SAH (S-adenosyl-L-homocysteine) riboswitch aptamer: an 87-nucleotide sequence from Ideonella aquatica. Rfam 15.1 lists 1,354 matches to the family in 1,132 species. Its family is annotated with S-adenosylhomocysteine metabolic process and regulation of gene expression in the Gene Ontology. On this family, see Wang et al., Mol Cell 2008: "Riboswitches that sense S-adenosylhomocysteine and activate genes involved in coenzyme recycling". It scores 69 bits against the family's covariance model.
RNA sequence: GAUUCCGAGGAGCGUUGCAAGGUCAGCCGCCAUGAGAUGGCCGACCCCAGGCUCGGAAUCUUCAUAUUGCAACGGCGCUCACCCGCA
Numbered sequence: 001g002a003u004u005c006c007g008a009g010g011a012g013c014g015u016u017g018c019a020a021g022g023u024c025a026g027c028c029g030c031c032a033u034g035a036g037a038u039g040g041c042c043g044a045c046c047c048c049a050g051g052c053u054c055g056g057a058a059u060c061u062u063c064a065u066a067u068u069g070c071a072a073c074g075g076c077g078c079u080c081a082c083c084c085g086c087a
Stems, first nucleotide, its partner, number of pairs: 002059007021046004026041004